[Rfam]
RNA sequence: UCGCCAGGCCGGGCCCCUCUGGCAGCCUCCGGGCUGCGAUGUCGGACUGGCGGA
Numbered sequence: 001u002c003g004c005c006a007g008g009c010c011g012g013g014c015c016c017c018u019c020u021g022g023c024a025g026c027c028u029c030c031g032g033g034c035u036g037c038g039a040u041g042u043c044g045g046a047c048u049g050g051c052g053g054a
Base pairs, nucleotide, nucleotide: 006048007047009045010044011043012042022037023036024035025034026033027032
Description: The record is a 54-nucleotide RNA sequence from Aureimonas pseudogalii, which matches "terC RNA" in Rfam. It scores 55 bits against the family's covariance model.